[Rfam]
RNA sequence: AUAAAAAACCCUGCAGAAAAACUGCAGGGUCCUUCUAUUUUCCGCAUUAACGAAAUAGAAGGCAAAGGGAGAGGAGAAACCGGAGGAAGAACUUAUGGGGAAGCGUAAGUCUUCUCCGCGG
Dot-bracket structure: ........((((((((.....))))))))(((((.....((.((......)).)).........)))))...........((((.((((.(((((..........)))))))))))))...
The family of this 121-nucleotide sequence from Siminovitchia fortis is "ylbH leader". Gene Ontology term of the family: regulation of gene expression. Pairs were carried over by alignment from the consensus structure. This family is a putative regulatory RNA structure that is found upstream of the ylbH gene in B. subtilis and related low GC Gram-positive bacteria. Rfam classes the family as a cis-regulatory leader.